[Rfam]
RNA sequence: UAGGAUAGCUGAUACUCAAGGGUGGUUGGCUCACUCCCCAAAAAAGGAGCGCAGACUAACCCCACCGCGUCCUGCGGUAACGUCUGCAUGACCCACAUCGUGUGGGCCCGGGGGUGAAGCCAUGACAGUAUUUGAAGCAUUAAUGUUGGCAAUCGCAUUUGCAACGUUAAUCAUUACAGUUCUGUCAUUUAAUCAUAAAAAAUAACCCAUCCUUGAGUUAGGUCCUCAGAUGGGUCAUUUCUACCAUUUGGAGCCAAUCCCCUUAAAGGAAUCAACUAUCUUUUUGACCGUUCGAUGGGAUAACAUCGGCG
Number, nucleotide and partner (000 for none) at each position: 001u000002a282003g281004g280005a279006u000007a277008g276009c000010u000011g273012a000013u257014a000015c217016u216017c215018a214019a213020g212021g211022g210023u000024g207025g206026u205027u204028g000029g000030c000031u117032c116033a115034c000035u114036c113037c112038c111039c110040a000041a000042a000043a000044a000045a000046g000047g000048a000049g000050c000051g000052c000053a000054g000055a000056c000057u000058a000059a000060c000061c000062c000063c000064a000065c000066c000067g000068c000069g000070u000071c000072c000073u000074g000075c000076g000077g000078u000079a000080a000081c000082g000083u000084c000085u000086g000087c000088a000089u000090g000091a000092c000093c000094c000095a000096c000097a000098u000099c000100g000101u000102g000103u000104g000105g000106g000107c000108c000109c000110g039111g038112g037113g036114g035115u033116g032117a031118a000119g000120c000121c000122a000123u000124g186125a185126c184127a183128g182129u000130a180131u000132u000133u000134g000135a000136a000137g000138c000139a000140u000141u000142a000143a000144u000145g000146u000147u000148g000149g000150c000151a000152a000153u000154c000155g000156c000157a000158u000159u000160u178161g177162c000163a175164a000165c000166g000167u000168u000169a000170a000171u000172c000173a000174u000175u163176a000177c161178a160179g000180u130181u000182c128183u127184g126185u125186c124187a000188u000189u000190u000191a000192a000193u000194c000195a000196u000197a000198a000199a000200a000201a000202a000203u000204a027205a026206c025207c024208c000209a000210u022211c021212c020213u019214u018215g017216a016217g015218u000219u000220a000221g000222g000223u000224c000225c000226u000227c250228a249229g248230a000231u000232g000233g000234g000235u000236c000237a000238u000239u000240u000241c000242u000243a000244c000245c000246a000247u000248u229249u228250g227251g000252a000253g000254c000255c000256a000257a013258u271259c000260c269261c268262c000263u000264u000265a000266a000267a000268g261269g260270a000271a258272u000273c011274a000275a000276c008277u007278a000279u005280c004281u003282u002283u000284u000285u000286g000287a000288c000289c311290g310291u309292u000293c308294g307295a306296u305297g304298g000299g000300a000301u000302a000303a000304c297305a296306u295307c294308g293309g291310c290311g289
RNA: BsrG